[Rfam]
The family of this 246-nucleotide sequence from Tinamus guttatus is "Small nucleolar RNA SNORD17". It scores 111 bits against the family's covariance model. By type it is a C/D-box small nucleolar RNA. The snoRNA HBI-43 belongs to the C/D family of snoRNAs, guiding 2'O-ribose methylation at position U3797 of the 28S rRNA. Pseudouridylation in position U3797 is predicted to be guided by the H/ACA snoRNA ACA48. A reference for the family is Huttenhofer et al. (2001), "RNomics: an experimental approach that identifies 201 candidates for novel, small, non-messenger RNAs in mouse", EMBO J. Gene Ontology terms of the family: RNA processing and nucleolus. Taxonomically the source falls in Tinamus (Eukaryota, Vertebrata, Tetrapoda, Aves).
RNA sequence: GUGAGGUGAUGAUGAAGUUUAUCCAUUCUCUGAGUGCAGCGACGCUGCCCUCCUGCAGCACCCUGGUUCCUGUUCUAGGGGCCGGGUGCUGUGCGGCCUCCAGAGACCCUGCAGUGUCCCAGUGUCCUGCUGGGGGCUGCUGUGGCCUGUGGCCGGCUGCCUGCAGGAGGGGGGUGUCCUGGCAGGGCUGGAGCCCCCUCCGUGGGGGCUGCAUCCCCACCGAGAUGAGGGAUGCUGUCUGAUCAC
Numbered sequence: 001g002u003g004a005g006g007u008g009a010u011g012a013u014g015a016a017g018u019u020u021a022u023c024c025a026u027u028c029u030c031u032g033a034g035u036g037c038a039g040c041g042a043c044g045c046u047g048c049c050c051u052c053c054u055g056c057a058g059c060a061c062c063c064u065g066g067u068u069c070c071u072g073u074u075c076u077a078g079g080g081g082c083c084g085g086g087u088g089c090u091g092u093g094c095g096g097c098c099u100c101c102a103g104a105g106a107c108c109c110u111g112c113a114g115u116g117u118c119c120c121a122g123u124g125u126c127c128u129g130c131u132g133g134g135g136g137c138u139g140c141u142g143u144g145g146c147c148u149g150u151g152g153c154c155g156g157c158u159g160c161c162u163g164c165a166g167g168a169g170g171g172g173g174g175u176g177u178c179c180u181g182g183c184a185g186g187g188c189u190g191g192a193g194c195c196c197c198c199u200c201c202g203u204g205g206g207g208g209c210u211g212c213a214u215c216c217c218c219a220c221c222g223a224g225a226u227g228a229g230g231g232a233u234g235c236u237g238u239c240u241g242a243u244c245a246c
Stems, first nucleotide, its partner, number of pairs: 010245004017238002023231002026229003030224002034220002039183002042180001043176004048171010061088001063086002066082006093160006107145001111140005117135008185217003189213002192210001194208004